[Rfam]
RNA sequence: AAGAAGUGUGACAUUCCGUUUGUGAUGAUUACUCUGAUUAUUUAAAUAAAUUUUUUAUGUUGGGAAAACGGGGUGUUACACUUUU
Dot-bracket structure: .(((((((((((((((((((..............................................)))))))))))))))))))
A member of the RNA family "MIR2617 microRNA precursor family" from Medicago truncatula, 85 nucleotides long. The match comes from Rfam's covariance-model search (49 bits). Its family is annotated with miRNA-mediated post-transcriptional gene silencing and RISC complex in the Gene Ontology. Lineage of the source: Eukaryota > Spermatophyta > Pentapetalae > Papilionoideae > Medicago. The base pairs follow the family's consensus structure, which was predicted with RNAalifold.